This 62-nucleotide sequence from Erinaceus europaeus belongs to the Rfam family "Gag/pol translational readthrough site". By type it is a cis-regulatory element. Rfam 15.1 lists 3,368 matches to the family in 94 species. On this family, see ten Dam et al., Virus Genes 1990: "RNA pseudoknots: translational frameshifting and readthrough on viral RNAs".
[Rfam]
RNA sequence: UAGGGAUGUCUCGGUUCGGAGUCCCUCCCUGAACCGCGGAUAACACUAGAAGUGGAGGGGCA
Numbered sequence: 001u002a003g004g005g006a007u008g009u010c011u012c013g014g015u016u017c018g019g020a021g022u023c024c025c026u027c028c029c030u031g032a033a034c035c036g037c038g039g040a041u042a043a044c045a046c047u048a049g050a051a052g053u054g055g056a057g058g059g060g061c062a
Base pairs, nucleotide, nucleotide: 008041009040010039012036013035014034015033016031018029019028022060023059024058025057026056027055